Shown here is a 127-nucleotide sequence from Sulfuricurvum sp. MLSB, a member of the family "purD RNA motif". Rfam classes the family as a cis-regulatory element. The organism belongs to Sulfuricurvum, within Bacteria. On this family, see Weinberg et al., Nucleic Acids Res 2007: "Identification of 22 candidate structured RNAs in bacteria using the CMfinder comparative genomics pipeline".
Nucleotides: 127
Stems, first nucleotide, its partner, number of pairs: 003069002006067005019056005025050004035044003087105007
Number, partner (000 for none) and nucleotide at each position: 001000g002000u003069a004068g005000a006067c007066g008065u009064c010063u011000u012000g013000g014000u015000g016000u017000g018000u019056u020055g021054g022053u023052g024000g025050u026049c027048u028047c029000g030000u031000u032000u033000g034000a035044g036043c037042c038000u039000g040000c041000g042037g043036g044035c045000g046000a047028g048027a049026g050025a051000u052023u053022g054021c055020c056019g057000c058000c059000g060000g061000a062000u063010a064009g065008a066007c067006g068004c069003u070000c071000g072000g073000u074000c075000c076000g077000c078000u079000u080000u081000u082000u083000u084000u085000u086000c087105a088104g089103c090102u091101u092100u093099g094000a095000g096000a097000a098000c099093c100092a101091a102090g103089g104088c105087u106000a107000c108000u109000g110000c111000g112000a113000a114000a115000c116000g117000c118000c119000c120000g121000c122000c123000u124000g125000g126000g127000c